[Rfam]
RNA sequence: AUGUUGAAUGUGAGGAUUGGAGAAGAUUAAACAGAAAAACGUAUGAUUUAGUUUCAUUUCAUCUGUUUAAUUUUCUCCAAUAUCUCAUCUUCGGCCU
Numbered sequence: 001a002u003g004u005u006g007a008a009u010g011u012g013a014g015g016a017u018u019g020g021a022g023a024a025g026a027u028u029a030a031a032c033a034g035a036a037a038a039a040c041g042u043a044u045g046a047u048u049u050a051g052u053u054u055c056a057u058u059u060c061a062u063c064u065g066u067u068u069a070a071u072u073u074u075c076u077c078c079a080a081u082a083u084c085u086c087a088u089c090u091u092c093g094g095c096c097u
Stems, first nucleotide, its partner, number of pairs: 004094005011087004016081006023074008032065002